The family of this 133-nucleotide RNA from Coffea arabica is "MIR162_1 microRNA precursor family".
RNA sequence: CUUGAGGACACUGGAGGCAGCGGUUCAUCGAUCUGUUCCCUGAAAUCCAAGCAUGAGAAAAAGAAAGAAAAAAAAAAAGAAGAGUAUUGGAACAGGAAUCGGUCGAUAAACCUCUGCAUCCAGCGCUUAACCC
Number, nucleotide and partner (000 for none) at each position: 001c000002u000003u000004g000005a000006g000007g000008a000009c000010a000011c000012u000013g121014g120015a119016g000017g000018c116019a115020g114021c000022g112023g111024u110025u109026c000027a107028u106029c105030g104031a103032u102033c101034u000035g000036u098037u097038c096039c000040c000041u000042g000043a000044a000045a000046u000047c000048c000049a000050a000051g000052c000053a000054u000055g000056a000057g000058a000059a000060a000061a000062a000063g000064a000065a000066a000067g000068a000069a000070a000071a000072a000073a000074a000075a000076a000077a000078a000079g000080a000081a000082g000083a000084g000085u000086a000087u000088u000089g000090g000091a000092a000093c000094a000095g000096g038097a037098a036099u000100c000101g033102g032103u031104c030105g029106a028107u027108a000109a025110a024111c023112c022113u000114c020115u019116g018117c000118a000119u015120c014121c013122a000123g000124c000125g000126c000127u000128u000129a000130a000131c000132c000133c000